The record is a 144-nucleotide RNA from Actinoallomurus iriomotensis, which matches "c-di-AMP riboswitch aptamer (ydaO/yuaA leader)" in Rfam.
Lineage of the source: Bacteria > Bacillati > Actinomycetes > Streptosporangiales > Actinoallomurus.
RNA sequence: GGAGCCCGGACGCCUAAUCCGGUGGCGCUCCCAGCGUCACUGGAGCCGGGGACCCAUGUCUUUGGGGUGAAUCCGCCGUGUGCGGUAGGGCUUCUCCUGGCCCGAACCCGUCAGCUAACCCGGUCGGCGGGUGAAGGAGAGAUA
Numbered sequence: 001g002g003a004g005c006c007c008g009g010a011c012g013c014c015u016a017a018u019c020c021g022g023u024g025g026c027g028c029u030c031c032c033a034g035c036g037u038c039a040c041u042g043g044a045g046c047c048g049g050g051g052a053c054c055c056a057u058g059u060c061u062u063u064g065g066g067g068u069g070a071a072u073c074c075g076c077c078g079u080g081u082g083c084g085g086u087a088g089g090g091c092u093u094c095u096c097c098u099g100g101c102c103c104g105a106a107c108c109c110g111u112c113a114g115c116u117a118a119c120c121c122g123g124u125c126g127g128c129g130g131g132u133g134a135a136g137g138a139g140a141g142a143u144a
Stems, first nucleotide, its partner, number of pairs: 011129004018044012045124006055064002065109003073085004088103004